Shown here is a 119-nucleotide RNA from Peach associated luteovirus, a member of the family "Luteovirus cap-independent translation element (BTE)". A search with the family's covariance model found it, with a score of 48 bits. About the family: This family represents the Luteovirus cap-independent translation element (BTE) as found in barley yellow dwarf virus (BYDV), bean leafroll virus and soybean dwarf virus. This family mediates translation of genomic (gRNA) and subgenomic RNA1 (sgRNA1). The base pairs follow the family's consensus structure, which is taken from published work. On this family, see Shen and Miller, Virology 2004: "Subgenomic RNA as a riboregulator: negative regulation of RNA replication by Barley yellow dwarf virus subgenomic RNA 2".
Nucleotides: 119
Stems, first nucleotide, its partner, number of pairs: 002119006010113001012110003017029004032075004080106002085101004
Number, partner (000 for none) and nucleotide at each position: 001000a002119a003118a004117c005116a006115a007114c008000u009000c010113g011000a012110u013109g014108g015000a016000u017029c018028c019027u020026g021000g022000g023000a024000a025000a026020c027019a028018g029017g030000c031000a032075a033074u034073c035072u036000u037000g038000g039000a040000u041000a042000a043000u044000c045000u046000u047000g048000g049000c050000g051000u052000a053000a054000a055000a056000c057000a058000c059000u060000g061000a062000g063000a064000c065000a066000c067000u068000g069000u070000c071000c072035g073034g074033a075032u076000g077000u078000a079000a080106g081105c082000u083000c084000g085101g086100g087099a088098g089000a090000c091000u092000c093000g094000u095000c096000a097000c098088c099087u100086c101085c102000g103000u104000c105081g106080u107000a108014u109013c110012a111000c112000u113010u114007g115006u116005u117004g118003u119002u